[Rfam]
RNA: Small nucleolar RNA snoR111
RNA sequence: AGAAACUUAGGAGACACUUCAUUAGUGUGUCUUUUCAUUGAGGAAGAGCAUUGAGGUAUAUUGAAAGCAAAGGUCGAGAUAUCGUUUCAGUCGUCAUUUUCCUUGUUGACGAUUUGAUUGUUGCUCGUCCACAU
Numbered sequence: 001a002g003a004a005a006c007u008u009a010g011g012a013g014a015c016a017c018u019u020c021a022u023u024a025g026u027g028u029g030u031c032u033u034u035u036c037a038u039u040g041a042g043g044a045a046g047a048g049c050a051u052u053g054a055g056g057u058a059u060a061u062u063g064a065a066a067g068c069a070a071a072g073g074u075c076g077a078g079a080u081a082u083c084g085u086u087u088c089a090g091u092c093g094u095c096a097u098u099u100u101c102c103u104u105g106u107u108g109a110c111g112a113u114u115u116g117a118u119u120g121u122u123g124c125u126c127g128u129c130c131a132c133a134u
Stems, first nucleotide, its partner, number of pairs: 006043003010039002013031005072130002075127004081118004090113007099105001